[Rfam]
A member of the RNA family "Actinobacteria sRNA Ms_IGR-5" from Rhodococcoides trifolii, 234 nucleotides long. Pairs were carried over by alignment from the consensus structure. On this family, see Li et al., RNA 2013: "Identification of small RNAs in Mycobacterium smegmatis using heterologous Hfq". The match comes from Rfam's covariance-model search (126 bits).
RNA sequence: ACACGAGAGAGGAGGUGGUCUGAAGUUGAAUUCUUCUAGGACGCGUGAGGUGGCUGUCAGCUAGCCGCAACCGCUGACGGAUUGGUUUUCCGCGCGAGCGGCGAGCGAAUUCCAGGCAGCUACCCGACCCCCGAGCCCCCGGUCCGUCCAGACCGGGACCCUUGUUUCGGCAGUGCAUUUGUUUGUGUAAUGCAUUGCACGUGGAACAGCGGUAGGGCUCGGGGGUCGUUGCGU
Numbered sequence: 001a002c003a004c005g006a007g008a009g010a011g012g013a014g015g016u017g018g019u020c021u022g023a024a025g026u027u028g029a030a031u032u033c034u035u036c037u038a039g040g041a042c043g044c045g046u047g048a049g050g051u052g053g054c055u056g057u058c059a060g061c062u063a064g065c066c067g068c069a070a071c072c073g074c075u076g077a078c079g080g081a082u083u084g085g086u087u088u089u090c091c092g093c094g095c096g097a098g099c100g101g102c103g104a105g106c107g108a109a110u111u112c113c114a115g116g117c118a119g120c121u122a123c124c125c126g127a128c129c130c131c132c133g134a135g136c137c138c139c140c141g142g143u144c145c146g147u148c149c150a151g152a153c154c155g156g157g158a159c160c161c162u163u164g165u166u167u168c169g170g171c172a173g174u175g176c177a178u179u180u181g182u183u184u185g186u187g188u189a190a191u192g193c194a195u196u197g198c199a200c201g202u203g204g205a206a207c208a209g210c211g212g213u214a215g216g217g218c219u220c221g222g223g224g225g226u227c228g229u230u231g232c233g234u
Base pairs, nucleotide, nucleotide: 014058015057016056017055018054019053060106061105062104064102065101067099068098072094073093074092125228126227127226128225129224130223131222132221133220134219135218136217137216138157139156140155141154142153143152